[Rfam]
RNA: mir-981 microRNA precursor family
RNA sequence: CCGCACUGAACUCGGGCUUCGUCAGCAGCGGGCUGUGAUAAUAAAAUCAACAAGUUCGUUGUCGACGAAACCUGCAUACUGUGUGG
Numbered sequence: 001c002c003g004c005a006c007u008g009a010a011c012u013c014g015g016g017c018u019u020c021g022u023c024a025g026c027a028g029c030g031g032g033c034u035g036u037g038a039u040a041a042u043a044a045a046a047u048c049a050a051c052a053a054g055u056u057c058g059u060u061g062u063c064g065a066c067g068a069a070a071c072c073u074g075c076a077u078a079c080u081g082u083g084u085g086g
Stems, first nucleotide, its partner, number of pairs: 001086006013074004018069004030057005